RNA sequence: ACCUGAAAAGAGCAAACUUAAAGAAAUUUAGGGACGCAAAGUUAUGGGCCUAAAAGGAAGUUCAACCUUAUGGCUGCCAGACUGCCAGG
Numbered sequence: 001a002c003c004u005g006a007a008a009a010g011a012g013c014a015a016a017c018u019u020a021a022a023g024a025a026a027u028u029u030a031g032g033g034a035c036g037c038a039a040a041g042u043u044a045u046g047g048g049c050c051u052a053a054a055a056g057g058a059a060g061u062u063c064a065a066c067c068u069u070a071u072g073g074c075u076g077c078c079a080g081a082c083u084g085c086c087a088g089g
Stems, first nucleotide, its partner, number of pairs: 012037002017032006040083004045079003048074003055068003
This 89-nucleotide sequence from Clostridium magnum belongs to the Rfam family "c-di-GMP-I riboswitch aptamer". A search with the family's covariance model found it, with a score of 72 bits. The source organism's lineage runs through Bacteria, Bacillati, Eubacteriales, Clostridiaceae and Clostridium magnum.